[Rfam]
RNA sequence: ACACGAGAAGGGAGGUGGUUCGGCAGAUGUAUGGAAACCGGACGCGUGAGGUGGCUGCGGGCUAGCGGCCCGUCACCACGUUCAGUGCGGUGCCGGACCGGCGUGUGAGUUGUGCGCGCAGCCGGCCCGAUCCCAAGCAGUCACCCGACCCGCGAGCUGCCGGUACGUCCGGCCGGCUCUCCGCCGUCAGGCGGAGGACCCAGCUCGCGGGUCGUCUGCG
Numbered sequence: 001a002c003a004c005g006a007g008a009a010g011g012g013a014g015g016u017g018g019u020u021c022g023g024c025a026g027a028u029g030u031a032u033g034g035a036a037a038c039c040g041g042a043c044g045c046g047u048g049a050g051g052u053g054g055c056u057g058c059g060g061g062c063u064a065g066c067g068g069c070c071c072g073u074c075a076c077c078a079c080g081u082u083c084a085g086u087g088c089g090g091u092g093c094c095g096g097a098c099c100g101g102c103g104u105g106u107g108a109g110u111u112g113u114g115c116g117c118g119c120a121g122c123c124g125g126c127c128c129g130a131u132c133c134c135a136a137g138c139a140g141u142c143a144c145c146c147g148a149c150c151c152g153c154g155a156g157c158u159g160c161c162g163g164u165a166c167g168u169c170c171g172g173c174c175g176g177c178u179c180u181c182c183g184c185c186g187u188c189a190g191g192c193g194g195a196g197g198a199c200c201c202a203g204c205u206c207g208c209g210g211g212u213c214g215u216c217u218g219c220g
Stems, first nucleotide, its partner, number of pairs: 015058005060127004065122002068119002071116001074114003146214013159177006
The family of this 220-nucleotide sequence from Streptomyces sp. SID625 is "Actinobacteria sRNA Ms_IGR-5". By type it is a small RNA. Taxonomically the source falls in Streptomyces (Bacteria, Bacillati, Actinomycetota, Kitasatosporales). It scores 87 bits against the family's covariance model.